[Rfam]
RNA: DUF805 RNA
RNA sequence: AAAAAUUGGAGACCAGAAACCAAAUAAACGGGGCGGAACUGAAAAGCCAAACGAGUAGGACAACA
Numbered sequence: 001a002a003a004a005a006u007u008g009g010a011g012a013c014c015a016g017a018a019a020c021c022a023a024a025u026a027a028a029c030g031g032g033g034c035g036g037a038a039c040u041g042a043a044a045a046g047c048c049a050a051a052c053g054a055g056u057a058g059g060a061c062a063a064c065a
Stems, first nucleotide, its partner, number of pairs: 006023004032048003039059002
Dot-bracket structure: .....((((..........))))........(((....[[.....))).........]]......